[Rfam]
RNA sequence: GGGAGCACCAGAUCCUGGACUGUGUCUCUGCUGCCCUGGGAUCCGGGGCCUGAGCUGCUGGAAUUACGCUCCUGGGGCCGCUGCUCCC
Numbered sequence: 001g002g003g004a005g006c007a008c009c010a011g012a013u014c015c016u017g018g019a020c021u022g023u024g025u026c027u028c029u030g031c032u033g034c035c036c037u038g039g040g041a042u043c044c045g046g047g048g049c050c051u052g053a054g055c056u057g058c059u060g061g062a063a064u065u066a067c068g069c070u071c072c073u074g075g076g077g078c079c080g081c082u083g084c085u086c087c088c
Stems, first nucleotide, its partner, number of pairs: 001088003006083002009080001011078001014075002017072003021068004025062003028057001030055003034052001038050001040049001042047001
The record is an 88-nucleotide sequence from Nyctereutes procyonoides, which matches "mir-8799 microRNA precursor family" in Rfam. The base pairs follow the family's consensus structure, which was predicted with RNAalifold. Its Rfam clan is "mir-8791 microRNA precursor clan".